Rfam assigns this 94-nucleotide RNA from Acidisphaera rubrifaciens to the family "Glycine riboswitch aptamer".
RNA sequence: AUGACCGCUGCGGGAGAGACCGGUGCCCGCUGCACCGGCGCCGACGGAGCAACCCCCCAGGAAACUCUCAGGCACCAGGGACCGCCGCGGAAGG
Numbered sequence: 001a002u003g004a005c006c007g008c009u010g011c012g013g014g015a016g017a018g019a020c021c022g023g024u025g026c027c028c029g030c031u032g033c034a035c036c037g038g039c040g041c042c043g044a045c046g047g048a049g050c051a052a053c054c055c056c057c058c059a060g061g062a063a064a065c066u067c068u069c070a071g072g073c074a075c076c077a078g079g080g081a082c083c084g085c086c087g088c089g090g091a092a093g094g
Stems, first nucleotide, its partner, number of pairs: 006089003010085004020038004040073003043069002047067003053060001
The base pairs follow the family's consensus structure.